[Rfam]
RNA sequence: AAAGUCCCUGUCGGAGAAGGAUUAGCCAUCCGCUCCGUAUCGAGUCUUGCGCCUGUGGCGGAGUCGUGAAGUAUGCGGCGAACAAGACAGGUGAAGCAUAGACAGAGAAUCUUGCAGGCCGUAGGGGAGUCCGCGCUCCCUGAAGUGCUGGUACAGCUUCGAAAGAGGGAUGUUGCGGAUGCCGAGGACUUAACGGGCUCCGAAGGUAACACGAUUUCAUCCGUAAUAGGCGAGGAUGGAUAGAUCCGCCGGAGUCCACAGGCCA
Numbered sequence: 001a002a003a004g005u006c007c008c009u010g011u012c013g014g015a016g017a018a019g020g021a022u023u024a025g026c027c028a029u030c031c032g033c034u035c036c037g038u039a040u041c042g043a044g045u046c047u048u049g050c051g052c053c054u055g056u057g058g059c060g061g062a063g064u065c066g067u068g069a070a071g072u073a074u075g076c077g078g079c080g081a082a083c084a085a086g087a088c089a090g091g092u093g094a095a096g097c098a099u100a101g102a103c104a105g106a107g108a109a110u111c112u113u114g115c116a117g118g119c120c121g122u123a124g125g126g127g128a129g130u131c132c133g134c135g136c137u138c139c140c141u142g143a144a145g146u147g148c149u150g151g152u153a154c155a156g157c158u159u160c161g162a163a164a165g166a167g168g169g170a171u172g173u174u175g176c177g178g179a180u181g182c183c184g185a186g187g188a189c190u191u192a193a194c195g196g197g198c199u200c201c202g203a204a205g206g207u208a209a210c211a212c213g214a215u216u217u218c219a220u221c222c223g224u225a226a227u228a229g230g231c232g233a234g235g236a237u238g239g240a241u242a243g244a245u246c247c248g249c250c251g252g253a254g255u256c257c258a259c260a261g262g263c264c265a
Stems, first nucleotide, its partner, number of pairs: 012037005019031004023233001025231002040106002044103004048098002050093007060083001156255006175249006181207003186201003212243001214241002217239006